[Rfam]
Background
The family of this 139-nucleotide RNA sequence from Hordeum vulgare is "Small nucleolar RNA Z247". The family has 8 seed sequences and 7,071 matches in Rfam 15.1. Pairs were carried over by alignment from the consensus structure, which was predicted with PFOLD. For this family Rfam cites "The high diversity of snoRNAs in plants: identification and comparative study of 120 snoRNA genes from Oryza sativa" (Chen et al., Nucleic Acids Res, 2003). A search with the family's covariance model found it, with a score of 48 bits. It is annotated as a C/D-box small nucleolar RNA.

Nucleotides: 139
Base pairs, nucleotide, nucleotide: 004138005137006136008134088108089107090106091105
Number, partner (000 for none) and nucleotide at each position: 001000g002000c003000c004138a005137u006136c007000c008134a009000g010000g011000a012000u013000g014000a015000u016000g017000a018000g019000c020000u021000c022000a023000u024000c025000u026000c027000c028000u029000a030000c031000a032000u033000c034000a035000u036000c037000c038000a039000u040000g041000g042000g043000c044000u045000u046000g047000a048000u049000c050000a051000a052000g053000a054000u055000u056000a057000u058000c059000a060000g061000c062000c063000c064000c065000u066000c067000g068000u069000c070000u071000c072000c073000g074000c075000c076000c077000u078000a079000g080000a081000u082000g083000c084000a085000c086000g087000c088108g089107u090106c091105a092000c093000c094000c095000c096000g097000g098000u099000a100000a101000c102000c103000c104000u105091u106090g107089a108088u109000g110000a111000a112000c113000u114000c115000u116000u117000c118000g119000c120000u121000a122000u123000g124000c125000u126000c127000a128000g129000u130000a131000a132000c133000u134008u135000u136006g137005a138004u139000c